[Rfam]
RNA: Ma3 gene ribosomal frameshift signal
RNA sequence: GGGAAACGACGCCAGGGCUGGGGCGAUGAGCCAUCCCAAGCCCUGGCAAGCAUAGGCUCA
Numbered sequence: 001g002g003g004a005a006a007c008g009a010c011g012c013c014a015g016g017g018c019u020g021g022g023g024c025g026a027u028g029a030g031c032c033a034u035c036c037c038a039a040g041c042c043c044u045g046g047c048a049a050g051c052a053u054a055g056g057c058u059c060a
Stems, first nucleotide, its partner, number of pairs: 014044006021037003028059005